The family of this 90-nucleotide RNA from a Streptosporangiales bacterium is "ZMP/ZTP riboswitch aptamer (pfl RNA motif)".
Rfam links the family to the GO terms regulation of purine nucleotide biosynthetic process and one-carbon metabolic process.
The match comes from Rfam's covariance-model search (57 bits).
RNA sequence: CCCUCGGGCCGUGACUGGCGCUGAGGGUGGAGCACCACCGGGGAGCGGCCCCGACGACUUACGUCAGUGCCGUGCGCCUGGGCGACUCGC
Dot-bracket structure: ...(.(((((((..(([[[[[.....((((....))))..))..))))))).)..............((((..]]]]]..))))......
Numbered sequence: 001c002c003c004u005c006g007g008g009c010c011g012u013g014a015c016u017g018g019c020g021c022u023g024a025g026g027g028u029g030g031a032g033c034a035c036c037a038c039c040g041g042g043g044a045g046c047g048g049c050c051c052c053g054a055c056g057a058c059u060u061a062c063g064u065c066a067g068u069g070c071c072g073u074g075c076g077c078c079u080g081g082g083c084g085a086c087u088c089g090c
Stems, first nucleotide, its partner, number of pairs: 004053001006051007015042002017078005027038004068084004